Shown here is a 131-nucleotide RNA sequence from Silurus meridionalis, a member of the family "Small Cajal body specific RNA 8". By type it is a small Cajal body RNA. Pairs were carried over by alignment from the consensus structure, which is taken from published work. From the family's description: scaRNAs are a specific class of small nuclear RNAs which localise to the Cajal bodies and guide the modification of RNA polymerase II transcribed spliceosomal RNAs U1, U2, U4, U5 and U12. U92 belong to the H/ACA box class of guide RNAs as it has the predicted hairpin-hinge-hairpin-tail structure, conserved H/ACA-box motifs and is found associated with GAR1.
RNA sequence: UGGGAAACUGAUACAUGAGCAGUUCUCAAUUAUGAGCCGCUCAUCACUAGCUUUCCCAAGAUAAUACCUGCUUUCUGAUGACCGGGGCAAAUUGAGGGAAAUUGCAACGGACAGAUACGGAGCAGACAAUA
Numbered sequence: 001u002g003g004g005a006a007a008c009u010g011a012u013a014c015a016u017g018a019g020c021a022g023u024u025c026u027c028a029a030u031u032a033u034g035a036g037c038c039g040c041u042c043a044u045c046a047c048u049a050g051c052u053u054u055c056c057c058a059a060g061a062u063a064a065u066a067c068c069u070g071c072u073u074u075c076u077g078a079u080g081a082c083c084g085g086g087g088c089a090a091a092u093u094g095a096g097g098g099a100a101a102u103u104g105c106a107a108c109g110g111a112c113a114g115a116u117a118c119g120g121a122g123c124a125g126a127c128a129a130u131a
Base pairs, nucleotide, nucleotide: 002057003056004055005054006053007052015044016043017042018041022037023036024035025034068125069124070123071122072121073120074119082110083109084108087105088104089103090102